RNA sequence: AGUAAAGUCAGCUAAAAAAGCUUUUGGGCCCAUACCCCAAACAUGUUGGUUAAACCCCUUCCUUUACUA
Number, nucleotide and partner (000 for none) at each position: 001a068002g067003u066004a065005a064006a063007g062008u000009c000010a022011g021012c020013u019014a000015a000016a000017a000018a000019a013020g012021c011022u010023u000024u040025u039026g038027g037028g036029c000030c000031c000032a000033u000034a000035c000036c028037c027038c026039a025040a024041a000042c000043a000044u000045g061046u000047u000048g058049g057050u000051u000052a000053a000054a000055c000056c000057c049058c048059u000060u000061c045062c007063u006064u005065u004066a003067c002068u001069a000
The record is a 69-nucleotide sequence, which matches "tRNA" in Rfam. Rfam's curators put it in the seed alignment. Rfam classes the family as a transfer RNA. Gene Ontology term of the family: triplet codon-amino acid adaptor activity.